[Rfam]
RNA sequence: UUCUCAUCUAGAGAGGUGUAGGGACUGGCCCAAUGAAACCUCGGCAACCUUCAUAAUUUCGUUUAUGAAAGGUGCCAAUUCCAGCGUUAAAAAUAACGAGAGAUGAGAG
Numbered sequence: 001u002u003c004u005c006a007u008c009u010a011g012a013g014a015g016g017u018g019u020a021g022g023g024a025c026u027g028g029c030c031c032a033a034u035g036a037a038a039c040c041u042c043g044g045c046a047a048c049c050u051u052c053a054u055a056a057u058u059u060c061g062u063u064u065a066u067g068a069a070a071g072g073u074g075c076c077a078a079u080u081c082c083a084g085c086g087u088u089a090a091a092a093a094u095a096a097c098g099a100g101a102g103a104u105g106a107g108a109g
Base pairs, nucleotide, nucleotide: 001109002108003107004106005105006104007103008102013042014041015040016039017038021031022030023029025084026083027082028081043076044075045074046073048072049071050069051068052067053066054065055064080101085098086097087096088095089094
A member of the RNA family "SAM riboswitch aptamer (S box leader)" from Serpentinicella alkaliphila, 109 nucleotides long.
It scores 97 bits against the family's covariance model.
From the family's description: The SAM riboswitch is found upstream of a number of genes which code for proteins involved in methionine or cysteine biosynthesis in Gram-positive bacteria.
The source organism's lineage runs through Bacteria, Bacillota, Clostridia, Natronincolaceae and Serpentinicella.